Shown here is an 80-nucleotide RNA sequence from Agitococcus lubricus, a member of the family "SAH (S-adenosyl-L-homocysteine) riboswitch aptamer". It scores 38 bits against the family's covariance model. The source organism's lineage runs through Bacteria, Pseudomonadati, Gammaproteobacteria, Moraxellales and Agitococcus. The base pairs follow the family's consensus structure, which is taken from published work.
RNA sequence: ACUAUUGAGGGGUGCUGCACCAGUUAAAAAACUGCUAGGCUCAAUAGUACACAUAUAGUUGCCAACGUCACCCACCUCUA
Numbered sequence: 001a002c003u004a005u006u007g008a009g010g011g012g013u014g015c016u017g018c019a020c021c022a023g024u025u026a027a028a029a030a031a032c033u034g035c036u037a038g039g040c041u042c043a044a045u046a047g048u049a050c051a052c053a054u055a056u057a058g059u060u061g062c063c064a065a066c067g068u069c070a071c072c073c074a075c076c077u078c079u080a
Base pairs, nucleotide, nucleotide: 002047003046004045005044006043007042008041021034022033023032024031025030